[Rfam]
RNA sequence: CCCGGUGCGUUGCACCGGGCUGGUAUAUGACGCCCUUUCAGGGCU
Dot-bracket structure: ((((((((...))))))))............(((((...))))).
Numbered sequence: 001c002c003c004g005g006u007g008c009g010u011u012g013c014a015c016c017g018g019g020c021u022g023g024u025a026u027a028u029g030a031c032g033c034c035c036u037u038u039c040a041g042g043g044c045u
Stems, first nucleotide, its partner, number of pairs: 001019008032044005